[Rfam]
RNA sequence: AAAAAAAACCCCGCCAUCAUGGCGGGGGUAGACAGGGGUAUGUCUAUGGCAAGGAAAACAGGGAUAAUGUGUUA
Numbered sequence: 001a002a003a004a005a006a007a008a009c010c011c012c013g014c015c016a017u018c019a020u021g022g023c024g025g026g027g028g029u030a031g032a033c034a035g036g037g038g039u040a041u042g043u044c045u046a047u048g049g050c051a052a053g054g055a056a057a058a059c060a061g062g063g064a065u066a067a068u069g070u071g072u073u074a
Stems, first nucleotide, its partner, number of pairs: 008029005013023003031073004036068001039066003043062002047058001
A member of the RNA family "Hfq-regulated sRNA 1" from Erwinia pyrifoliae, 74 nucleotides long. The family's consensus secondary structure was predicted with RNAfold. The family's RNA type in Rfam is small RNA. The sequence is in the family's curated seed alignment. Gene Ontology term of the family: protein binding.